The family of this 146-nucleotide sequence from Ictidomys tridecemlineatus is "Small nucleolar RNA SNORA42/SNORA80 family". Rfam's curators write: The members of this family belong to the H/ACA class of snoRNAs that guide the sites of modification of uridines to pseudouridines. Human ACA42 (SNORA42) was cloned from HeLa cells by immunoprecipitation with anti-GAR1 antibody. Lineage of the source: Eukaryota > Metazoa > Chordata > Euarchontoglires > Ictidomys. The base pairs follow the family's consensus structure, which was predicted with RNAalifold. By type it is an H/ACA-box small nucleolar RNA. On this family, see Schattner et al., RNA 2006: "A computational screen for mammalian pseudouridylation guide H/ACA RNAs". It scores 74 bits against the family's covariance model.
Nucleotides: 146
Base pairs, nucleotide, nucleotide: 002069003068004067005065007063015060018057019056020055022053024051025049026048083139084138085137086136087135088134094129099124100123101120102119103118104117105116106115
Number, partner (000 for none) and nucleotide at each position: 001000u002069c003068a004067u005065g006000a007063a008000a009000a010000u011000g012000a013000a014000u015060u016000g017000a018057u019056g020055g021000c022053a023000a024051g025049u026048c027000u028000g029000u030000c031000c032000c033000c034000c035000u036000u037000g038000a039000a040000u041000a042000a043000c044000u045000c046000a047000g048026g049025g050000u051024u052000a053022u054000u055020u056019c057018a058000c059000a060015g061000a062000g063007u064000c065005c066000c067004a068003u069002g070000u071000c072000a073000g074000a075000a076000u077000a078000a079000a080000c081000c082000a083139u084138g085137g086136c087135c088134c089000c090000a091000a092000a093000c094129c095000a096000u097000u098000g099124c100123c101120u102119g103118g104117u105116u106115u107000c108000u109000g110000c111000c112000c113000a114000u115106a116105g117104g118103u119102u120101g121000c122000u123100g124099g125000c126000a127000c128000c129094g130000a131000a132000g133000u134088g135087g136086g137085u138084u139083a140000u141000a142000c143000a144000a145000u146000g